[Rfam]
RNA sequence: GAACUCUGGAAAGAGCCUUUAAAGGCCACCGUAGAAGUAAAGCUUUCAGGUAAAAAUACAGAGGGUAUAGG
Dot-bracket structure: (..(((((......((((....)))).((((...(((.....))).).))).......)))))..).....
RNA: Glycine riboswitch aptamer